[Rfam]
Shown here is a 225-nucleotide RNA sequence from Staphylococcus epidermidis, a member of the family "S. aureus tsr24 small RNA". A reference for the family is Carroll et al. (2016), "Genome-wide Annotation, Identification, and Global Transcriptomic Analysis of Regulatory or Small RNA Gene Expression in Staphylococcus aureus", MBio. The family has 4 seed sequences and 98 matches in Rfam 15.1. The source organism's lineage runs through Bacteria, Bacillati, Caryophanales, Staphylococcus and Staphylococcus epidermidis.

RNA sequence: AUUCUUUACACAUAAAGCACCUCGUUAAAUUAGUUUAUUGGUAUUUAUUAAAUUAUACGAAAGGGCCAUAUUUUUUAAAGUAUUUUAAUAUAAAAUUACAUAUAAGCACAAAGUAUUUUGGCGAGACUCUUGAGGGAACAGGACAAGCUGAAGACUACAGGCUGAAGCUGUCCGAUAAGAAAGCGAGCCAACAAUACGAAGUAUUGUAAAUAAAGAAGCCAGUAA
Numbered sequence: 001a002u003u004c005u006u007u008a009c010a011c012a013u014a015a016a017g018c019a020c021c022u023c024g025u026u027a028a029a030u031u032a033g034u035u036u037a038u039u040g041g042u043a044u045u046u047a048u049u050a051a052a053u054u055a056u057a058c059g060a061a062a063g064g065g066c067c068a069u070a071u072u073u074u075u076u077a078a079a080g081u082a083u084u085u086u087a088a089u090a091u092a093a094a095a096u097u098a099c100a101u102a103u104a105a106g107c108a109c110a111a112a113g114u115a116u117u118u119u120g121g122c123g124a125g126a127c128u129c130u131u132g133a134g135g136g137a138a139c140a141g142g143a144c145a146a147g148c149u150g151a152a153g154a155c156u157a158c159a160g161g162c163u164g165a166a167g168c169u170g171u172c173c174g175a176u177a178a179g180a181a182a183g184c185g186a187g188c189c190a191a192c193a194a195u196a197c198g199a200a201g202u203a204u205u206g207u208a209a210a211u212a213a214a215g216a217a218g219c220c221a222g223u224a225a
Stems, first nucleotide, its partner, number of pairs: 005210006026037003041066002044063003048060002050054001081203006091098002101110001103108001113197005118191005128180004133176001136173001138171002141168001146163004